The record is a 71-nucleotide sequence, which matches "skipping-rope RNA" in Rfam. The family's RNA type in Rfam is small RNA.

RNA sequence: GGAUUUCUGAGGAUGGAACAGGCAACCAUCGCCCAUGUUGGAGAUGCGGGAAUGUCACCCCGCCUAAAUUC
Dot-bracket structure: ((((((..(..(((((....[[[[.))))).(........)....(((((..]]]]..)))))).))))))